[Rfam]
RNA sequence: AGAGGAGGCGUAGGUGGUUGCGGGCGCAGGUCGUCCGAGGAAAGUCCGGGCUUCCGAAAGACCAAACUUGCUGGGUAACGCCCAGUGCGGGUGACCGUGAGGAUAGUGCCACAGAAACAUACCGCCGAUGGAGCUUUGGCUCACAGGUAAGGGUGCAAGGGUGCGGUAAGAGCGCACCAGCAGCAUCGAGAGGUGCUGGCUCGGUAAACCCCGGUUGGAAGCAAGGUCGUAGGAGCUAUGGUUGGUCUUUUUCCAGCUCCGAGCGGGCUCGUCCCGCGUAAUCCGCUAGAGGUGUUUGGCAACAAACAUCCCAGAUAGAUAACCGCCCUCGCUGUGGGUGACCACAGAUGAGAACAGAACCCGGCUUAUGUCCUGCUCUUCCC
Number, nucleotide and partner (000 for none) at each position: 001a379002g378003a377004g376005g000006a374007g373008g372009c000010g000011u000012a369013g327014g326015u325016g324017g323018u322019u321020g000021c037022g036023g035024g034025c033026g032027c000028a000029g000030g000031u000032c026033g025034u024035c023036c022037g021038a000039g000040g000041a000042a367043a366044g365045u000046c364047c363048g362049g361050g360051c221052u220053u219054c218055c000056g000057a000058a000059a000060g264061a000062c000063c261064a000065a216066a215067c214068u000069u213070g212071c085072u084073g083074g082075g081076u000077a000078a000079c000080g000081c075082c074083c073084a072085g071086u100087g098088c097089g096090g095091g000092u000093g000094a000095c090096c089097g088098u087099g000100a086101g211102g210103a000104u000105a000106g209107u208108g205109c204110c203111a000112c000113a000114g000115a000116a000117a000118c000119a000120u000121a000122c152123c151124g148125c147126c146127g000128a000129u145130g144131g142132a141133g140134c139135u000136u000137u000138g000139g134140c133141u132142c131143a000144c130145a129146g126147g125148u124149a000150a000151g123152g122153g000154u000155g000156c000157a000158a000159g000160g178161g177162u176163g175164c174165g173166g000167u000168a000169a000170g000171a000172g000173c165174g164175c163176a162177c161178c160179a000180g200181c198182a197183g196184c195185a194186u193187c192188g000189a000190g000191a000192g187193g186194u185195g184196c183197u182198g181199g000200c180201u000202c000203g110204g109205u108206a000207a000208a107209c106210c102211c101212c070213g069214g067215u066216u065217g000218g054219a053220a052221g051222c000223a000224a000225g284226g283227u000228c000229g000230u000231a000232g000233g000234a000235g275236c000237u000238a272239u271240g270241g000242u000243u000244g000245g000246u000247c000248u000249u000250u000251u000252u000253c000254c000255a269256g268257c267258u266259c265260c000261g063262a000263g000264c060265g259266g258267g257268c256269u255270c240271g239272u238273c000274c000275c235276g000277c000278g000279u000280a000281a000282u000283c226284c225285g000286c000287u000288a000289g000290a000291g310292g309293u308294g307295u306296u305297u304298g303299g000300c000301a000302a000303c298304a297305a296306a295307c294308a293309u292310c291311c000312c000313a000314g000315a000316u000317a000318g000319a000320u000321a019322a018323c017324c016325g015326c014327c013328c000329u000330c000331g000332c000333u000334g000335u000336g000337g000338g000339u000340g000341a000342c000343c000344a000345c000346a000347g000348a000349u000350g000351a000352g000353a000354a000355c000356a000357g000358a000359a000360c050361c049362c048363g047364g046365c044366u043367u042368a000369u012370g000371u000372c008373c007374u006375g000376c004377u003378c002379u001380u000381c000382c000383c000